The record is a 71-nucleotide RNA from Angomonas deanei, which matches "Trypanosomatid snoRNA TB9Cs4H2" in Rfam.
Gene Ontology terms of the family: nucleolus and RNA processing.
It is annotated as an H/ACA-box small nucleolar RNA.
RNA sequence: AGCACCACCAGCUACCACAUGGAGUAUAUAUCUUUACUCUCCAUGAAUGGUCGUUUUCUGGUUCCAGAUUC
Numbered sequence: 001a002g003c004a005c006c007a008c009c010a011g012c013u014a015c016c017a018c019a020u021g022g023a024g025u026a027u028a029u030a031u032c033u034u035u036a037c038u039c040u041c042c043a044u045g046a047a048u049g050g051u052c053g054u055u056u057u058c059u060g061g062u063u064c065c066a067g068a069u070u071c
Stems, first nucleotide, its partner, number of pairs: 002064001004062004014051003018045007